[Rfam]
RNA sequence: CUUCGCAGGGGACGUGUGGAUCCUUGGGCCGUUGCAGGACGGUCGCCACGCUGGGUUAGGUCACCAGCAGGCCCGAGGGGAGCGAGUGGCGAGACCGACCCCAGGAC
Numbered sequence: 001c002u003u004c005g006c007a008g009g010g011g012a013c014g015u016g017u018g019g020a021u022c023c024u025u026g027g028g029c030c031g032u033u034g035c036a037g038g039a040c041g042g043u044c045g046c047c048a049c050g051c052u053g054g055g056u057u058a059g060g061u062c063a064c065c066a067g068c069a070g071g072c073c074c075g076a077g078g079g080g081a082g083c084g085a086g087u088g089g090c091g092a093g094a095c096c097g098a099c100c101c102c103a104g105g106a107c
Stems, first nucleotide, its partner, number of pairs: 002106003008102004013084003022078008041096002043092005
RNA: c-di-GMP-II-GAG riboswitch aptamer